[Rfam]
RNA sequence: CAGUGAAUACUGAGUCAACUUGAAGGAUGACGAGUUUAAUUAAUUGACUAUUUGAUUGCAUACAAAUGCUGCAAUGGCGUAAGACAUUUAAUGGAAUCAAAUAAUUAGCGAGCAACGAAUGUUGGCUUUUUGGGUUGGGAAUUUUCGUUUAUAAAAAUAUAAUCGACUUCCUGAUUAAGAACGCUGAAUUUUUAAUCUAAAAAUCAGGUUCACCGAAUAUUACGCGCCUCUAUACGAACGACUGCCGGGAGGCAGGCGGUUUUGUAAAAAUCACGAGGCCAUCGGUUUACAAUAGCUCCUGUUUUCGCUGCUCUUUAUUUAU
Numbered sequence: 001c002a003g004u005g006a007a008u009a010c011u012g013a014g015u016c017a018a019c020u021u022g023a024a025g026g027a028u029g030a031c032g033a034g035u036u037u038a039a040u041u042a043a044u045u046g047a048c049u050a051u052u053u054g055a056u057u058g059c060a061u062a063c064a065a066a067u068g069c070u071g072c073a074a075u076g077g078c079g080u081a082a083g084a085c086a087u088u089u090a091a092u093g094g095a096a097u098c099a100a101a102u103a104a105u106u107a108g109c110g111a112g113c114a115a116c117g118a119a120u121g122u123u124g125g126c127u128u129u130u131u132g133g134g135u136u137g138g139g140a141a142u143u144u145u146c147g148u149u150u151a152u153a154a155a156a157a158u159a160u161a162a163u164c165g166a167c168u169u170c171c172u173g174a175u176u177a178a179g180a181a182c183g184c185u186g187a188a189u190u191u192u193u194a195a196u197c198u199a200a201a202a203a204u205c206a207g208g209u210u211c212a213c214c215g216a217a218u219a220u221u222a223c224g225c226g227c228c229u230c231u232a233u234a235c236g237a238a239c240g241a242c243u244g245c246c247g248g249g250a251g252g253c254a255g256g257c258g259g260u261u262u263u264g265u266a267a268a269a270a271u272c273a274c275g276a277g278g279c280c281a282u283c284g285g286u287u288u289a290c291a292a293u294a295g296c297u298c299c300u301g302u303u304u305u306c307g308c309u310g311c312u313c314u315u316u317a318u319u320u321a322u
Stems, first nucleotide, its partner, number of pairs: 004038005016029002019026002049103007059093003066087003071078002110313005116307004127292002136173005145166003149162001180210003184207004189202004212286005226279005239258002242255005
RNA: RNase E 5' UTR element